[Rfam]
RNA: Group II catalytic intron D1-D4-7
Organism: Azotobacter vinelandii
RNA sequence: CCGAUUGUUCCACCAACCGUUCCCUACCCGGACAGGCGAAGCCGGCAACAGCUUGGUCUGAAGCUCUAGGGACAAUGUAGCCACCGACGUCGUCGGUAGGUCGAGCCGUGAGGCAAGGCCGAAUCUGCCAGCAUCAAGGCGGAGAGGCGC
Dot-bracket structure: .((.(((......))).))........(.((((((((.((((.(....).)))).)))))....))).).............(((((.....))))).((((...((....))...))))...((((((........)))))).......